Rfam assigns this 89-nucleotide RNA from Denticeps clupeoides to the family "mir-15 microRNA precursor family". The family's consensus secondary structure was predicted with RNAalifold. A reference for the family is Lagos-Quintana et al. (2001), "Identification of novel genes coding for small expressed RNAs", Science. The match comes from Rfam's covariance-model search (67 bits). Lineage of the source: Eukaryota > Chordata > Vertebrata > Teleostei > Denticeps. Rfam describes the family as follows. This family represents the related mir-15a and mir-15b sequences. In humans miR-15a and miR-16 are clustered within 0.5 kb at 13q14. This region has been shown to be deleted in more than half of B cell chronic lymphocytic leukaemias (CLL). Both miR-15a and miR-16 are deleted or down-regulated in more than two thirds of CLL cases.
[Rfam]
RNA sequence: GGCUGCCUUGCUGUAGCAGCACGUAAAUAUUGGAGUUACACCACAGCUGAACCCUCCAGUAUUGAUCGUGCUGCUGUAGUACAGCGGGC
Numbered sequence: 001g002g003c004u005g006c007c008u009u010g011c012u013g014u015a016g017c018a019g020c021a022c023g024u025a026a027a028u029a030u031u032g033g034a035g036u037u038a039c040a041c042c043a044c045a046g047c048u049g050a051a052c053c054c055u056c057c058a059g060u061a062u063u064g065a066u067c068g069u070g071c072u073g074c075u076g077u078a079g080u081a082c083a084g085c086g087g088g089c
Stems, first nucleotide, its partner, number of pairs: 001089001003087004013077011024065001026063010